[Rfam]
RNA sequence: UUGCAUAUGAUGAAGCAAAUGAGUAUGAAUAAAGUCAUGAUACUGUAAAUGCUUUCGGAUGUA
Numbered sequence: 001u002u003g004c005a006u007a008u009g010a011u012g013a014a015g016c017a018a019a020u021g022a023g024u025a026u027g028a029a030u031a032a033a034g035u036c037a038u039g040a041u042a043c044u045g046u047a048a049a050u051g052c053u054u055u056c057g058g059a060u061g062u063a
Stems, first nucleotide, its partner, number of pairs: 002063004012055005022044005

The family of this 63-nucleotide RNA sequence from Puma concolor is "Small nucleolar RNA Z39". Rfam links the family to the GO terms RNA processing and nucleolus. Pairs were carried over by alignment from the consensus structure, which was predicted with PFOLD. The family has 5 seed sequences and 935 matches in Rfam 15.1. For this family Rfam cites "The high diversity of snoRNAs in plants: identification and comparative study of 120 snoRNA genes from Oryza sativa" (Chen et al., Nucleic Acids Res, 2003). Taxonomically the source falls in Puma (Eukaryota, Bilateria, Theria, Boreoeutheria). By type it is a C/D-box small nucleolar RNA.